[Rfam]
The record is a 375-nucleotide RNA sequence from Galactobacter valiniphilus, which matches "Bacterial RNase P class A" in Rfam.
The base pairs follow the family's consensus structure, which is taken from published work.
RNA sequence: UGGGUUGGCCGGACGGUCGCGGGUUGCGCAAGCAACGCGAGGAAAGUCCGGGCUCCACAGAACAGGGUGGUGGGUAACGCCCACUCGGGGUAACCCGCAGGCCAGUGCCACAGAAAUGAAACCGCCUCCGCCUUUGGGCGGCGGUAAGGGUGAAACGGUGGUGUAAGAGACCACCAGCGUCCCGGGUGACCGGGAUGGCUAGGUAAACCCCACCCGGAGCAAGGCCAGACAGGCGCCGAUCGAGGGCUGUUCGCCCGAGGCGCCGGGUAGGCUGCUCGAGACCGUCGGCAACGGCGGUCCUAGAUAGAUGACCGUCUCCUGCGCGGGGGUAACCGCGCGCGGCGACAAAACCCGGCUCAUAGGCCAACCCAUCCA
Numbered sequence: 001u002g003g004g005u006u007g008g009c010c011g012g013a014c015g016g017u018c019g020c021g022g023g024u025u026g027c028g029c030a031a032g033c034a035a036c037g038c039g040a041g042g043a044a045a046g047u048c049c050g051g052g053c054u055c056c057a058c059a060g061a062a063c064a065g066g067g068u069g070g071u072g073g074g075u076a077a078c079g080c081c082c083a084c085u086c087g088g089g090g091u092a093a094c095c096c097g098c099a100g101g102c103c104a105g106u107g108c109c110a111c112a113g114a115a116a117u118g119a120a121a122c123c124g125c126c127u128c129c130g131c132c133u134u135u136g137g138g139c140g141g142c143g144g145u146a147a148g149g150g151u152g153a154a155a156c157g158g159u160g161g162u163g164u165a166a167g168a169g170a171c172c173a174c175c176a177g178c179g180u181c182c183c184g185g186g187u188g189a190c191c192g193g194g195a196u197g198g199c200u201a202g203g204u205a206a207a208c209c210c211c212a213c214c215c216g217g218a219g220c221a222a223g224g225c226c227a228g229a230c231a232g233g234c235g236c237c238g239a240u241c242g243a244g245g246g247c248u249g250u251u252c253g254c255c256c257g258a259g260g261c262g263c264c265g266g267g268u269a270g271g272c273u274g275c276u277c278g279a280g281a282c283c284g285u286c287g288g289c290a291a292c293g294g295c296g297g298u299c300c301u302a303g304a305u306a307g308a309u310g311a312c313c314g315u316c317u318c319c320u321g322c323g324c325g326g327g328g329g330u331a332a333c334c335g336c337g338c339g340c341g342g343c344g345a346c347a348a349a350a351c352c353c354g355g356c357u358c359a360u361a362g363g364c365c366a367a368c369c370c371a372u373c374c375a
Base pairs, nucleotide, nucleotide: 001371002370003369004368005367006366007365008364009363010362011360012316013315014314015313016312017311018310020039021038023036024035025034026033027032045357046356048355049354050353051352052351053219054218055217056216060252061251062250063249065215066214067213068212069211070084071083072082073081074080085099086097087096088095089094100210101209105208106207107204108203109202122149123148124145125144126143128141129140130139131138132137157175158174159173160172161171162170177199178197179196180195181194182193183192184191185190223273224272225271226270232264233263234262235261236260237259244256245255246254247253280299281298282297283296284295285294286293287292